[Rfam]
RNA sequence: UGCCCGUCGACGCCGGAUCGCACGAGUACCACGGGCCGGAGCGGGGGAACCAGGUAAGCGCCCCGCUGUGCCCUGCGCGCCCACGCGCAGGGGAGGCCGGGGCUUGGGGUGAAGCCGCCGCCGCGCGGCCGGGCCAGCCUUCCGGCCCGAACCCGACAGCUCACCUCGCAGGCGUCGGAGAGGCGCCAU
Numbered sequence: 001u002g003c004c005c006g007u008c009g010a011c012g013c014c015g016g017a018u019c020g021c022a023c024g025a026g027u028a029c030c031a032c033g034g035g036c037c038g039g040a041g042c043g044g045g046g047g048a049a050c051c052a053g054g055u056a057a058g059c060g061c062c063c064c065g066c067u068g069u070g071c072c073c074u075g076c077g078c079g080c081c082c083a084c085g086c087g088c089a090g091g092g093g094a095g096g097c098c099g100g101g102g103c104u105u106g107g108g109g110u111g112a113a114g115c116c117g118c119c120g121c122c123g124c125g126c127g128g129c130c131g132g133g134c135c136a137g138c139c140u141u142c143c144g145g146c147c148c149g150a151a152c153c154c155g156a157c158a159g160c161u162c163a164c165c166u167c168g169c170a171g172g173c174g175u176c177g178g179a180g181a182g183g184c185g186c187c188a189u
Stems, first nucleotide, its partner, number of pairs: 011174004018040002041169006051106005107154003115128004131148004